[Rfam]
RNA sequence: AAACAUAGCUUCUAGGGUUCCGACUCAAAUAAUUGAUCAUUAUCGAGUGACUGGUCCAAGAGAAGCAGGCUACAUCAGAAAUUUUCAAUUUUACUCAAUUACUAAUAAUUUAGUAGCCACACGGCGGGAUAAAAGCCCGGGAGGA
Numbered sequence: 001a002a003a004c005a006u007a008g009c010u011u012c013u014a015g016g017g018u019u020c021c022g023a024c025u026c027a028a029a030u031a032a033u034u035g036a037u038c039a040u041u042a043u044c045g046a047g048u049g050a051c052u053g054g055u056c057c058a059a060g061a062g063a064a065g066c067a068g069g070c071u072a073c074a075u076c077a078g079a080a081a082u083u084u085u086c087a088a089u090u091u092u093a094c095u096c097a098a099u100u101a102c103u104a105a106u107a108a109u110u111u112a113g114u115a116g117c118c119a120c121a122c123g124g125c126g127g128g129a130u131a132a133a134a135g136c137c138c139g140g141g142a143g144g145a
Stems, first nucleotide, its partner, number of pairs: 008066005015057002020054002022051001023048004028043001068118006120140001122143001126138003
RNA: Guanidine-I riboswitch aptamer